RNA sequence: GGGCCUGAAAUGAUGAUCUGAGUUCAUGUCUCUUCUCUGAGCUGUAUCCUGAAGACAGCCAGGUGUGUUUCUGAUCAGGCUU
Numbered sequence: 001g002g003g004c005c006u007g008a009a010a011u012g013a014u015g016a017u018c019u020g021a022g023u024u025c026a027u028g029u030c031u032c033u034u035c036u037c038u039g040a041g042c043u044g045u046a047u048c049c050u051g052a053a054g055a056c057a058g059c060c061a062g063g064u065g066u067g068u069u070u071c072u073g074a075u076c077a078g079g080c081u082u
Base pairs, nucleotide, nucleotide: 001082002081003080004079005078
The record is an 82-nucleotide RNA sequence from Tachuris rubrigastra, which matches "Small nucleolar RNA SNORD111" in Rfam. The family's consensus secondary structure was predicted with RNAalifold. A search with the family's covariance model found it, with a score of 52 bits. Taxonomically the source falls in Tachuris (Eukaryota, Metazoa, Coelurosauria, Neoaves). Rfam links the family to the GO terms RNA processing and nucleolus. A reference for the family is Galardi et al. (2002), "Purified box C/D snoRNPs are able to reproduce site-specific 2'-O-methylation of target RNA in vitro", Mol Cell Biol. By type it is a C/D-box small nucleolar RNA.